About this RNA
The family of this 127-nucleotide RNA sequence from Morella rubra is "MIR828 microRNA precursor family". The literature on the family includes a 2006 paper in Genes Dev by Rajagopalan et al., "A diverse and evolutionarily fluid set of microRNAs in Arabidopsis thaliana". The base pairs follow the family's consensus structure, which was predicted with RNAalifold. Gene Ontology terms of the family: miRNA-mediated post-transcriptional gene silencing and RISC complex. The match comes from Rfam's covariance-model search (85 bits). The source organism's lineage runs through Eukaryota, Mesangiospermae, rosids, Myricaceae and Morella.

[Rfam]
RNA sequence: GUAACGUUUCUUGCUCAAAUGAGUAUUCCAACCUCAGCUGCACAUGCUAAUUAUGGGUCUUUCUCUAUGACCAUGAUAAUGCUGCUGCUGCUGUCUCUGAGAUGCUCACUUGAGCAAGCAAUGUUAA
Numbered sequence: 001g002u003a004a005c006g007u008u009u010c011u012u013g014c015u016c017a018a019a020u021g022a023g024u025a026u027u028c029c030a031a032c033c034u035c036a037g038c039u040g041c042a043c044a045u046g047c048u049a050a051u052u053a054u055g056g057g058u059c060u061u062u063c064u065c066u067a068u069g070a071c072c073a074u075g076a077u078a079a080u081g082c083u084g085c086u087g088c089u090g091c092u093g094u095c096u097c098u099g100a101g102a103u104g105c106u107c108a109c110u111u112g113a114g115c116a117a118g119c120a121a122u123g124u125u126a127a
Stems, first nucleotide, its partner, number of pairs: 004124005010118009020108008029099002